This 211-nucleotide sequence from Artemisia annua belongs to the Rfam family "Plant small nucleolar RNA U3". It scores 143 bits against the family's covariance model. The family's RNA type in Rfam is C/D-box small nucleolar RNA. Rfam 15.1 lists 3,759 matches to the family in 258 species. The source organism's lineage runs through Eukaryota, Spermatophyta, eudicotyledons, asterids and Artemisia. Rfam describes the family as follows. Small nucleolar RNAs (snoRNAs) are involved in the processing and modification of rRNA in the nucleolus. Pairs were carried over by alignment from the consensus structure, which is taken from published work. A reference for the family is Zwieb (1997), "The uRNA database", Nucleic Acids Res. Rfam links the family to the GO terms nucleolus and RNA processing.
[Rfam]
RNA sequence: AUGACCAUACUUGAAGGAUCUCUUCUAUAGGUUCGUACCUCUGUAUUCUUGAUUCCUCAAGAGACAGUAGACCCCGUCUGGUUGAUGCAACAUGACCAUGUAGCUAGAGCGUGAUUAACCGAGCCUCGUGGUCUCGGCCAUGGCUCAGUAGAGGAUCGUUGCCAACUCAUCUGAUGGGUCUUGGCAUGGCUACAUGGUUGUCUGACAGACG
Numbered sequence: 001a002u003g004a005c006c007a008u009a010c011u012u013g014a015a016g017g018a019u020c021u022c023u024u025c026u027a028u029a030g031g032u033u034c035g036u037a038c039c040u041c042u043g044u045a046u047u048c049u050u051g052a053u054u055c056c057u058c059a060a061g062a063g064a065c066a067g068u069a070g071a072c073c074c075c076g077u078c079u080g081g082u083u084g085a086u087g088c089a090a091c092a093u094g095a096c097c098a099u100g101u102a103g104c105u106a107g108a109g110c111g112u113g114a115u116u117a118a119c120c121g122a123g124c125c126u127c128g129u130g131g132u133c134u135c136g137g138c139c140a141u142g143g144c145u146c147a148g149u150a151g152a153g154g155a156u157c158g159u160u161g162c163c164a165a166c167u168c169a170u171c172u173g174a175u176g177g178g179u180c181u182u183g184g185c186a187u188g189g190c191u192a193c194a195u196g197g198u199u200g201u202c203u204g205a206c207a208g209a210c211g
Base pairs, nucleotide, nucleotide: 001036002035003033005031006030013025014024015023016020041067042066043065044064046062047061049059051057076210077209078208079207080206095198096197097196098195099194100193101192102191103190104189105188106187108160109159110158111157118149119148121146122145123144124143127142128141129140130139131138132137162184163183164182165181166178167177168176169175